[Rfam]
RNA sequence: GACUCGGACCCACGCGGUCUUAACGCCCAAAUCUUGUCAGGACCGGAAGGUAGCAGCAAUACGGGAUGCUUAGGACAGGCGUGGUAUCCGGGUCUCC
Numbered sequence: 001g002a003c004u005c006g007g008a009c010c011c012a013c014g015c016g017g018u019c020u021u022a023a024c025g026c027c028c029a030a031a032u033c034u035u036g037u038c039a040g041g042a043c044c045g046g047a048a049g050g051u052a053g054c055a056g057c058a059a060u061a062c063g064g065g066a067u068g069c070u071u072a073g074g075a076c077a078g079g080c081g082u083g084g085u086a087u088c089c090g091g092g093u094c095u096c097c
Stems, first nucleotide, its partner, number of pairs: 004091005010084005017076006026065003034059004042051003
About this RNA
Shown here is a 97-nucleotide RNA from Romeriopsis navalis, a member of the family "Bacterial small signal recognition particle RNA". Pairs were carried over by alignment from the consensus structure, which is taken from published work. The family's RNA type in Rfam is non-coding RNA gene. The source organism's lineage runs through Bacteria, Cyanophyceae, Leptolyngbyaceae, Romeriopsis and Romeriopsis navalis. A reference for the family is Rosenblad et al. (2003), "SRPDB: Signal Recognition Particle Database", Nucleic Acids Res. Rfam links the family to the GO terms SRP-dependent cotranslational protein targeting to membrane, signal sequence recognition and signal recognition particle, plasma membrane targeting.